The record is a 78-nucleotide sequence from Pyrus ussuriensis x Pyrus communis, which matches "MIR473 microRNA precursor family" in Rfam. A reference for the family is Lu et al. (2005), "Novel and mechanical stress-responsive MicroRNAs in Populus trichocarpa that are absent from Arabidopsis", Plant Cell. Rfam links the family to the GO terms miRNA-mediated post-transcriptional gene silencing and RISC complex. A search with the family's covariance model found it, with a score of 64 bits. The base pairs follow the family's consensus structure, which was predicted with WAR.
[Rfam]
RNA sequence: GUUGCUCACUCUCCCUCAAGGGCUUCGACCAAUGUCAGACAUGGCGAGCUCGAAGACCUUGGGGAGAGUGGAUAAAAA
Numbered sequence: 001g002u003u004g005c006u007c008a009c010u011c012u013c014c015c016u017c018a019a020g021g022g023c024u025u026c027g028a029c030c031a032a033u034g035u036c037a038g039a040c041a042u043g044g045c046g047a048g049c050u051c052g053a054a055g056a057c058c059u060u061g062g063g064g065a066g067a068g069u070g071g072a073u074a075a076a077a078a
Base pairs, nucleotide, nucleotide: 006071007070008069009068010067011066012065013064014063015062017061018060019059020058021057023055024054025053026052